This 106-nucleotide sequence from Clostridium ljungdahlii belongs to the Rfam family "TPP riboswitch aptamer (THI element)". About the family: Vitamin B(1) in its active form thiamin pyrophosphate (TPP) is an essential coenzyme that is synthesised by coupling of pyrimidine and thiazole moieties in bacteria.

[Rfam]
RNA sequence: UUUUCAUAAAAAGGGAGCAUGCUUAAGCAUGCUGAGAGGAAGUAUAUGCUUCGACCUAUAACUUGAUUCGGAUAAUGCCGACGUAAGGAAAUAUUUAAUUUAUGCU
Numbered sequence: 001u002u003u004u005c006a007u008a009a010a011a012a013g014g015g016a017g018c019a020u021g022c023u024u025a026a027g028c029a030u031g032c033u034g035a036g037a038g039g040a041a042g043u044a045u046a047u048g049c050u051u052c053g054a055c056c057u058a059u060a061a062c063u064u065g066a067u068u069c070g071g072a073u074a075a076u077g078c079c080g081a082c083g084u085a086a087g088g089a090a091a092u093a094u095u096u097a098a099u100u101u102a103u104g105c106u
Stems, first nucleotide, its partner, number of pairs: 006094003012057003017032005039052005062087004068081004